[Rfam]
About this RNA:
Selenocysteine insertion sequence 1: a 63-nucleotide RNA sequence from Stegodyphus mimosarum. About the family: The incorporation of selenocysteine into a protein sequence is directed by an in-frame UGA codon (usually a stop codon) within the coding region of the mRNA. Selenoprotein mRNAs contain a conserved secondary structure in the 3' UTR that is required for the distinction of UGA stop from UGA selenocysteine. The selenocysteine insertion sequence (SECIS) is around 60 nt in length and adopts a hairpin structure which is sufficiently well-defined and conserved to act as a computational screen for selenoprotein genes. Its family is annotated with selenocysteine incorporation in the Gene Ontology. Rfam 15.1 lists 3,793 matches to the family in 721 species. The match comes from Rfam's covariance-model search (37 bits).

RNA sequence: CUGUUUUUCAUGAAAGGCUAUGUUGAAACCAUUAUGGCAGUGUAGUUUGGAUGUUCUUAACAC
Numbered sequence: 001c002u003g004u005u006u007u008u009c010a011u012g013a014a015a016g017g018c019u020a021u022g023u024u025g026a027a028a029c030c031a032u033u034a035u036g037g038c039a040g041u042g043u044a045g046u047u048u049g050g051a052u053g054u055u056c057u058u059a060a061c062a063c
Stems, first nucleotide, its partner, number of pairs: 002062004015048010029037003